[Rfam]
RNA sequence: UCCCUGUGCGCUUGUAGUAAGGAGCCUGUGCCCCAGAGAGUCCCGGGUGGCACCCGGCGCUCCAGGCCAUGCAGCCACGGCCACCACGUAGCUCGCAGCGGCGGUAGCGCCCCCUGUGAAGCGGCCCGCGAUGCCCCUACCGCUGUGAACUCUGCAGCCCGCCCGAACACUCUCCGCCCGGGACCGGCUGUACUUCGGACACGCUCGACUCUGAGCGCCAGCGACAAGCGACGAGGAGUCCAGAGAGCUGCAAGCUCGGAGAAGGCCUCCCCGCACAGGUGGGGGAAGCCGGCCGGUGCAGCGCGGGGACAGACACUCGGGCUGGCGCUGGCGGCUAGGC
Numbered sequence: 001u002c003c004c005u006g007u008g009c010g011c012u013u014g015u016a017g018u019a020a021g022g023a024g025c026c027u028g029u030g031c032c033c034c035a036g037a038g039a040g041u042c043c044c045g046g047g048u049g050g051c052a053c054c055c056g057g058c059g060c061u062c063c064a065g066g067c068c069a070u071g072c073a074g075c076c077a078c079g080g081c082c083a084c085c086a087c088g089u090a091g092c093u094c095g096c097a098g099c100g101g102c103g104g105u106a107g108c109g110c111c112c113c114c115u116g117u118g119a120a121g122c123g124g125c126c127c128g129c130g131a132u133g134c135c136c137c138u139a140c141c142g143c144u145g146u147g148a149a150c151u152c153u154g155c156a157g158c159c160c161g162c163c164c165g166a167a168c169a170c171u172c173u174c175c176g177c178c179c180g181g182g183a184c185c186g187g188c189u190g191u192a193c194u195u196c197g198g199a200c201a202c203g204c205u206c207g208a209c210u211c212u213g214a215g216c217g218c219c220a221g222c223g224a225c226a227a228g229c230g231a232c233g234a235g236g237a238g239u240c241c242a243g244a245g246a247g248c249u250g251c252a253a254g255c256u257c258g259g260a261g262a263a264g265g266c267c268u269c270c271c272c273g274c275a276c277a278g279g280u281g282g283g284g285g286a287a288g289c290c291g292g293c294c295g296g297u298g299c300a301g302c303g304c305g306g307g308g309a310c311a312g313a314c315a316c317u318c319g320g321g322c323u324g325g326c327g328c329u330g331g332c333g334g335c336u337a338g339g340c
Stems, first nucleotide, its partner, number of pairs: 001285007010276001021043003026036003045271003049267001050099001054088001056085002059082001062080002066075002101146005107141001109140001116134003121129003150261005157255002161251002165248001170245004176239002179236001184207001186205003189199001191197001210234002217229002288336001290334001292332008300323003304319004
RNA: TrkB IRES